[Rfam]
RNA sequence: GGCCUCUUGUUAGGAGAGAAUUGUCCAAGCAAAAUAAAGGACAGUCGCCGAAGGUGAACACCCAAAAACUCUCAGGCAAAAGGACUAGCAAGCAGCU
Numbered sequence: 001g002g003c004c005u006c007u008u009g010u011u012a013g014g015a016g017a018g019a020a021u022u023g024u025c026c027a028a029g030c031a032a033a034a035u036a037a038a039g040g041a042c043a044g045u046c047g048c049c050g051a052a053g054g055u056g057a058a059c060a061c062c063c064a065a066a067a068a069c070u071c072u073c074a075g076g077c078a079a080a081a082g083g084a085c086u087a088g089c090a091a092g093c094a095g096c097u
Stems, first nucleotide, its partner, number of pairs: 006092008020045007047077003050073002054071001056069001